[Rfam]
RNA: c-di-GMP-I riboswitch aptamer
Organism: Thermobacillus composti
RNA sequence: AGCUGAUAAAGGCAAACCAUAUGAAAAUAUGGGACGCAAAGCUACGGGUCUAAGGCGGAAUGCUAUGACAGCCGGGCUGCCGGA
Number, nucleotide and partner (000 for none) at each position: 001a000002g000003c000004u000005g000006a000007u000008a000009a000010a000011g000012g037013c036014a000015a000016a000017c032018c031019a030020u029021a028022u027023g000024a000025a000026a000027a022028u021029a020030u019031g018032g017033g000034a000035c000036g013037c012038a000039a000040a078041g077042c076043u075044a000045c074046g073047g072048g069049u068050c067051u000052a000053a000054g000055g063056c062057g061058g000059a000060a000061u057062g056063c055064u000065a000066u000067g050068a049069c048070a000071g000072c047073c046074g045075g043076g042077c041078u040079g000080c000081c000082g000083g000084a000